Notes
A member of the RNA family "Lysine riboswitch aptamer" from Hathewaya histolytica, 180 nucleotides long. A search with the family's covariance model found it, with a score of 117 bits. Rfam's curators write: Riboswitches are metabolite binding domains within certain messenger RNAs that serve as precision sensors for their corresponding targets. Pairs were carried over by alignment from the consensus structure, which is taken from published work. Lineage of the source: Bacteria > Bacillota > Clostridia > Eubacteriales > Hathewaya.
RNA sequence: GUUGAUGAUAGAGGCGCUGUACUUAUUAGUAAUACUAUGGAGGUAAGCACUGUGAAGUAGUAUGAAAGGAAAUACAGCCGAAGUGUACAAUCAAUGCUUUGAGAUUGUAUAGCUGGUUUUGUAUAAAAUAUAUGCAAGACUGUCACAAAUAAAAGUUAUUUGUGAAGAGCUAUCCUGAAC
Numbered sequence: 001g002u003u004g005a006u007g008a009u010a011g012a013g014g015c016g017c018u019g020u021a022c023u024u025a026u027u028a029g030u031a032a033u034a035c036u037a038u039g040g041a042g043g044u045a046a047g048c049a050c051u052g053u054g055a056a057g058u059a060g061u062a063u064g065a066a067a068g069g070a071a072a073u074a075c076a077g078c079c080g081a082a083g084u085g086u087a088c089a090a091u092c093a094a095u096g097c098u099u100u101g102a103g104a105u106u107g108u109a110u111a112g113c114u115g116g117u118u119u120u121g122u123a124u125a126a127a128a129u130a131u132a133u134g135c136a137a138g139a140c141u142g143u144c145a146c147a148a149a150u151a152a153a154a155g156u157u158a159u160u161u162g163u164g165a166a167g168a169g170c171u172a173u174c175c176u177g178a179a180c
Base pairs, nucleotide, nucleotide: 007174008173009172010171011170016078017077018076019075020074021073023071024070032063033062034061035060036059037058038057082114083113084112086109087108088107089106090105091104092103115141116140117139118138119137120136121135122134123133124132125131143165144164145163146162147161148160149159